[Rfam]
Shown here is a 90-nucleotide sequence from Thermaerobacillus caldiproteolyticus, a member of the family "c-di-GMP-I riboswitch aptamer". For this family Rfam cites "Identification of 22 candidate structured RNAs in bacteria using the CMfinder comparative genomics pipeline" (Weinberg et al., Nucleic Acids Res, 2007). Rfam links the family to the GO term cyclic-di-GMP binding. Rfam's curators write: GEMM was predicted in a large-scale screen for bacterial structured RNA regulatory elements. Genes associated with GEMM are involved in a diverse array of functions, including chemotaxis regulation, signal transduction, secretion and chitin.

RNA sequence: AAUAUUGAUCGGCAAACUACUCGAAAGGGUAGGACGCAAAGCUAAAGGGGCUAAAUCUACUUUCAAUAGACACGCCAGCCAGUUGCCCUU
Numbered sequence: 001a002a003u004a005u006u007g008a009u010c011g012g013c014a015a016a017c018u019a020c021u022c023g024a025a026a027g028g029g030u031a032g033g034a035c036g037c038a039a040a041g042c043u044a045a046a047g048g049g050g051c052u053a054a055a056u057c058u059a060c061u062u063u064c065a066a067u068a069g070a071c072a073c074g075c076c077a078g079c080c081a082g083u084u085g086c087c088c089u090u
Base pairs, nucleotide, nucleotide: 012037013036017032018031019030020029021028022027040084041083042082043081047080048079049076050075051074056070057069058068059067